[Rfam]
RNA sequence: CAGCAUGUUCCCAAGGGCUACGGCUGUUGUGGCCGUGGCUCUCCAACUGCAUGCCAGAGUAACUGGAAAGACUUUGACAGCCCAGGCCAGCAGUGUCUGCAGCUGCCACUCGACUUUCCUAUAUAU
Numbered sequence: 001c002a003g004c005a006u007g008u009u010c011c012c013a014a015g016g017g018c019u020a021c022g023g024c025u026g027u028u029g030u031g032g033c034c035g036u037g038g039c040u041c042u043c044c045a046a047c048u049g050c051a052u053g054c055c056a057g058a059g060u061a062a063c064u065g066g067a068a069a070g071a072c073u074u075u076g077a078c079a080g081c082c083c084a085g086g087c088c089a090g091c092a093g094u095g096u097c098u099g100c101a102g103c104u105g106c107c108a109c110u111c112g113a114c115u116u117u118c119c120u121a122u123a124u125a126u
Stems, first nucleotide, its partner, number of pairs: 011038002016034007065119006080106002083099004
Overview:
Rfam assigns this 126-nucleotide sequence from Mesocricetus auratus to the family "Small nucleolar RNA SNORA44". Rfam 15.1 lists 1,056 matches to the family in 599 species. Lineage of the source: Eukaryota > Gnathostomata > Euteleostomi > Tetrapoda > Mesocricetus. Rfam's curators write: ACA44 is a member of the H/ACA class of snoRNA that guide the sites of modification of uridines to pseudouridines. For this family Rfam cites "RNomics: an experimental approach that identifies 201 candidates for novel, small, non-messenger RNAs in mouse" (Huttenhofer et al., EMBO J, 2001). It scores 126 bits against the family's covariance model. Its family is annotated with nucleolus and RNA processing in the Gene Ontology. By type it is an H/ACA-box small nucleolar RNA. The base pairs follow the family's consensus structure, which was predicted with PFOLD.